This 72-nucleotide RNA sequence from Arabidopsis thaliana belongs to the Rfam family "mir-5595 microRNA precursor family". Pairs were carried over by alignment from the consensus structure, which was predicted with RNAalifold. Rfam's curators put it in the seed alignment. Taxonomically the source falls in Arabidopsis (Eukaryota, Tracheophyta, Brassicales, Camelineae).
RNA sequence: AUUAACAUGGACAUAUGAUCUGCAUCUUUGCACUUGAAAAUGCAAAGAUGCAGAUCAUAUGUCCAUGUUAUC
Dot-bracket structure: ..((((((((((((((((((((((((((((((.(....).))))))))))))))))))))))))))))))..